[Rfam]
RNA sequence: AUGAAGAUAUGGGGAGAGAACACUUGACUGUGUCGCCGAAGGAGCAAAUGGGAAACUAUGAAUCUCUCAGGCAAAAAGACUCGUAUUGGACG
Numbered sequence: 001a002u003g004a005a006g007a008u009a010u011g012g013g014g015a016g017a018g019a020a021c022a023c024u025u026g027a028c029u030g031u032g033u034c035g036c037c038g039a040a041g042g043a044g045c046a047a048a049u050g051g052g053a054a055a056c057u058a059u060g061a062a063u064c065u066c067u068c069a070g071g072c073a074a075a076a077a078g079a080c081u082c083g084u085a086u087u088g089g090a091c092g
Base pairs, nucleotide, nucleotide: 006087007086008085009084010083011082012081013080020033021032022031023030035072036071037070038068039067042066043065044064048059049058